RNA sequence: GAGGGGGAGGACGGGACGAACGGAGGGCGGGGUUUGUGUGGUCCUCACUCCUCUCCUCCCGUCUUCUCUCUGC
Numbered sequence: 001g002a003g004g005g006g007g008a009g010g011a012c013g014g015g016a017c018g019a020a021c022g023g024a025g026g027g028c029g030g031g032g033u034u035u036g037u038g039u040g041g042u043c044c045u046c047a048c049u050c051c052u053c054u055c056c057u058c059c060c061g062u063c064u065u066c067u068c069u070c071u072g073c
Stems, first nucleotide, its partner, number of pairs: 004069013018055001022053001024052004029048001031046001
A member of the RNA family "mir-483 microRNA precursor family" from Galemys pyrenaicus, 73 nucleotides long. It scores 63 bits against the family's covariance model. Pairs were carried over by alignment from the consensus structure, which was predicted with RNAalifold.